[Rfam]
RNA sequence: AAUUAAAAUUCAUAUUUCUUUCGUAUAACCUCACGAAUUAAGGGUGGGGGUCUCUACGGGAAGCCUUAACUUCCUUACUACGAAUAUAGAAUCAUGUGUU
Numbered sequence: 001a002a003u004u005a006a007a008a009u010u011c012a013u014a015u016u017u018c019u020u021u022c023g024u025a026u027a028a029c030c031u032c033a034c035g036a037a038u039u040a041a042g043g044g045u046g047g048g049g050g051u052c053u054c055u056a057c058g059g060g061a062a063g064c065c066u067u068a069a070c071u072u073c074c075u076u077a078c079u080a081c082g083a084a085u086a087u088a089g090a091a092u093c094a095u096g097u098g099u100u
Base pairs, nucleotide, nucleotide: 020084021083022082023081024080025079029049030048031047032046033045034044058075059074060073061072062071063070
This 100-nucleotide RNA from Cohnella abietis belongs to the Rfam family "Purine riboswitch aptamer". The family's consensus secondary structure is taken from published work.